[Rfam]
RNA sequence: UUUAAAAGCUGGUGAAAUAGCAACCUUAUAACCUGGUCAGGACAGAGAUGUAGCAGCCAUAUUAAGAAGUGUUAUGUUCGCCAGCUUUUUAAAAG
Numbered sequence: 001u002u003u004a005a006a007a008g009c010u011g012g013u014g015a016a017a018u019a020g021c022a023a024c025c026u027u028a029u030a031a032c033c034u035g036g037u038c039a040g041g042a043c044a045g046a047g048a049u050g051u052a053g054c055a056g057c058c059a060u061a062u063u064a065a066g067a068a069g070u071g072u073u074a075u076g077u078u079c080g081c082c083a084g085c086u087u088u089u090u091a092a093a094a095g
Stems, first nucleotide, its partner, number of pairs: 003091005009084006017075006024066001026064001028062002034059004042051003
Rfam assigns this 95-nucleotide RNA sequence from Mycoplasmopsis agalactiae to the family "Bacterial small signal recognition particle RNA". Lineage of the source: Bacteria > Bacillati > Mycoplasmatota > Metamycoplasmataceae > Mycoplasmopsis agalactiae. Rfam's curators write: The signal recognition particle (SRP) is a universally conserved ribonucleoprotein involved in the co-translational targeting of proteins to membranes. Rfam classes the family as a non-coding RNA gene.